[Rfam]
RNA: Small nucleolar RNA Z247
Organism: Panicum hallii
RNA sequence: CCACUAGAAGAUGAAGAAUUGAUCGAGUACAUCAUCACCGGGCUUGGCGAAGAUUUCAAUCCGCUCGUCACGUCUCUCUGCACUAGAGUGGAGUCAAUCACUCUUGGUGAGUUUUAUUCACAGCUCCUCAGUUUUGAAA
Numbered sequence: 001c002c003a004c005u006a007g008a009a010g011a012u013g014a015a016g017a018a019u020u021g022a023u024c025g026a027g028u029a030c031a032u033c034a035u036c037a038c039c040g041g042g043c044u045u046g047g048c049g050a051a052g053a054u055u056u057c058a059a060u061c062c063g064c065u066c067g068u069c070a071c072g073u074c075u076c077u078c079u080g081c082a083c084u085a086g087a088g089u090g091g092a093g094u095c096a097a098u099c100a101c102u103c104u105u106g107g108u109g110a111g112u113u114u115u116a117u118u119c120a121c122a123g124c125u126c127c128u129c130a131g132u133u134u135u136g137a138a139a
Stems, first nucleotide, its partner, number of pairs: 005137001007135002088108002091105003